[Rfam]
RNA sequence: AUUUAUUCUCAGCUUUGAGAACUGAAUUCCAUGGGUUGAAAUUUAAUCUUCUCUCAGACCCAGGGAACUCAGUUCUUCAGCUUGGAUGUUUCUG
Dot-bracket structure: .......((.(((....((((((((.......((((.....................)))).......))))))))...))).)).........